[Rfam]
RNA sequence: GGUCAGUCAUAUAAUUAAUCAUGGCAUGCAUUAGCUAAAUCCAAAGUUGAUGUGAGUUUUAAAAUUACACGGAGACCUU
Numbered sequence: 001g002g003u004c005a006g007u008c009a010u011a012u013a014a015u016u017a018a019u020c021a022u023g024g025c026a027u028g029c030a031u032u033a034g035c036u037a038a039a040u041c042c043a044a045a046g047u048u049g050a051u052g053u054g055a056g057u058u059u060u061a062a063a064a065u066u067a068c069a070c071g072g073a074g075a076c077c078u079u
Base pairs, nucleotide, nucleotide: 001077002076003075004074
Dot-bracket structure: ((((.....................................................................))))..